The family of this 76-nucleotide sequence is "L13-Bacteroidia ribosomal protein leader". The literature on the family includes a 2020 paper in BMC Microbiol by Eckert and Weinberg, "Discovery of 20 novel ribosomal leader candidates in bacteria and archaea". It is annotated as a cis-regulatory leader.
RNA sequence: GAGGGCACGCUUAGAGCCCUCGUCGGGCGUGUUAAUAGCGACUGUCAUUUGGCCUGGACAGCGUGGUUAGAGAAUC
Numbered sequence: 001g002a003g004g005g006c007a008c009g010c011u012u013a014g015a016g017c018c019c020u021c022g023u024c025g026g027g028c029g030u031g032u033u034a035a036u037a038g039c040g041a042c043u044g045u046c047a048u049u050u051g052g053c054c055u056g057g058a059c060a061g062c063g064u065g066g067u068u069a070g071a072g073a074a075u076c
Stems, first nucleotide, its partner, number of pairs: 001021006032070005038064003042061005